[Rfam]
RNA sequence: ACGUAAGGUAGAGGAGCGUUUGGUAAAGAUUACUUUUUUGAGCGGGAGCUGUGAAGAAAAGGAAAGGUGCCAAACGCCGAAAGCAUAUUAUUGCCAAAUAAUAUGCUUGGGUACAGGGAUAAUAUCUUUGUAACUGUCACAGAUGUGGAGCGCUACUGAAAAU
Number, nucleotide and partner (000 for none) at each position: 001a000002c000003g000004u000005a000006a000007g157008g156009u155010a154011g153012a000013g000014g000015a000016g077017c076018g075019u074020u073021u072022g071023g070024u069025a000026a000027a000028g000029a000030u000031u000032a000033c061034u060035u059036u058037u057038u056039u055040g000041a000042g000043c000044g000045g000046g000047a000048g000049c000050u000051g000052u000053g000054a000055a039056g038057a037058a036059a035060a034061g033062g000063a000064a000065a000066g000067g000068u000069g024070c023071c022072a021073a020074a019075c018076g017077c016078c000079g000080a000081a108082a107083g106084c105085a104086u103087a102088u101089u100090a099091u098092u097093g000094c000095c000096a000097a092098a091099u090100a089101a088102u087103a086104u085105g084106c083107u082108u081109g135110g134111g000112u132113a131114c130115a129116g128117g127118g126119a125120u000121a000122a000123u000124a000125u119126c118127u117128u116129u115130g114131u113132a112133a000134c110135u109136g000137u148138c147139a146140c145141a000142g000143a000144u000145g140146u139147g138148g137149a000150g000151c000152g000153c011154u010155a009156c008157u007158g000159a000160a000161a000162a000163u000
RNA: Lysine riboswitch aptamer
Organism: Fannyhessea vaginae